[Rfam]
RNA sequence: CACUCCCUGGGACGUUCGCCAGCAGGACUAAGUCUCUUGAGCCGAUAAGUAACGCCUUGGGGGCCACCUUGCAGUGUUGUUGUGCACACCCGCUGCGCGCGGGCAGCCUGAUACACGGCUACGGCCCCCACCUGAACCUCUGGGUUCAAGGCCGAUACCUGCAGCGGCGCCUCCGGGGAGUGU
Numbered sequence: 001c002a003c004u005c006c007c008u009g010g011g012a013c014g015u016u017c018g019c020c021a022g023c024a025g026g027a028c029u030a031a032g033u034c035u036c037u038u039g040a041g042c043c044g045a046u047a048a049g050u051a052a053c054g055c056c057u058u059g060g061g062g063g064c065c066a067c068c069u070u071g072c073a074g075u076g077u078u079g080u081u082g083u084g085c086a087c088a089c090c091c092g093c094u095g096c097g098c099g100c101g102g103g104c105a106g107c108c109u110g111a112u113a114c115a116c117g118g119c120u121a122c123g124g125c126c127c128c129c130a131c132c133u134g135a136a137c138c139u140c141u142g143g144g145u146u147c148a149a150g151g152c153c154g155a156u157a158c159c160u161g162c163a164g165c166g167g168c169g170c171c172u173c174c175g176g177g178g179a180g181u182g183u
Base pairs, nucleotide, nucleotide: 002181003180004179005178006177007176008175009174010173011172013169014168015167017166018165019164035151036150038148039147040146041145042144043143059129060128061127063125064124065123072118074116075115076114077113084107085106089103090102091101092100093099
The record is a 183-nucleotide sequence from Thioalbus denitrificans, which matches "6S / SsrS RNA" in Rfam.
Lineage of the source: Bacteria > Pseudomonadati > Pseudomonadota > Chromatiales > Thioalbus.
It is annotated as a non-coding RNA gene.
The base pairs follow the family's consensus structure, which is taken from published work.
E. coli 6S RNA was the first non coding RNA to be sequenced, but its function was unknown until recently. It consists of 184 nucleotides that fold into an extended hairpin structure with a large single-stranded internal bulge. The 6S RNA specifically associates with RNA polymerase holoenzyme containing the sigma70 specificity factor. This interaction represses expression from a sigma70-dependent promoter during stationary phase. 6S RNA homologs have recently been identified in most bacterial genomes.
A search with the family's covariance model found it, with a score of 89 bits.